[Rfam]
RNA sequence: GGAGAUUUAUGCUCACAAGAGAGAUGGCACUAAUUGUGCUCCAACUGCAUGCAAUUGUUGCCAUCUCUCCUCCGACCAAAAAGCUCU
Numbered sequence: 001g002g003a004g005a006u007u008u009a010u011g012c013u014c015a016c017a018a019g020a021g022a023g024a025u026g027g028c029a030c031u032a033a034u035u036g037u038g039c040u041c042c043a044a045c046u047g048c049a050u051g052c053a054a055u056u057g058u059u060g061c062c063a064u065c066u067c068u069c070c071u072c073c074g075a076c077c078a079a080a081a082a083g084c085u086c087u
Stems, first nucleotide, its partner, number of pairs: 002086003006082003010078002013075002017071001019069011031057007
RNA: MIR3627 microRNA precursor family
Organism: Malus domestica